This 77-nucleotide sequence from Sus scrofa belongs to the Rfam family "mir-3613 microRNA precursor family". The base pairs follow the family's consensus structure, which was predicted with RNAalifold. Rfam links the family to the GO terms RISC complex and miRNA-mediated post-transcriptional gene silencing. Lineage of the source: Eukaryota > Metazoa > Amniota > Suidae > Sus.

[Rfam]
RNA sequence: GGGUUUGGAUUGUUGUACUUUUUUUUUUGUUCGUUGCAUUUUUAGGAACAAAAAAAAAAGCCCAACCCUUCACACCG
Numbered sequence: 001g002g003g004u005u006u007g008g009a010u011u012g013u014u015g016u017a018c019u020u021u022u023u024u025u026u027u028u029g030u031u032c033g034u035u036g037c038a039u040u041u042u043u044a045g046g047a048a049c050a051a052a053a054a055a056a057a058a059a060g061c062c063c064a065a066c067c068c069u070u071c072a073c074a075c076c077g
Base pairs, nucleotide, nucleotide: 002076003075004074006072007071008070009069012066013065014064015063018060019059020058021057022056023055024054025053026052027051028050029049030048031047032046034044
Dot-bracket structure: .(((.((((..((((..(((((((((((((((.(.........).)))))))))))))))..))))..)))).))).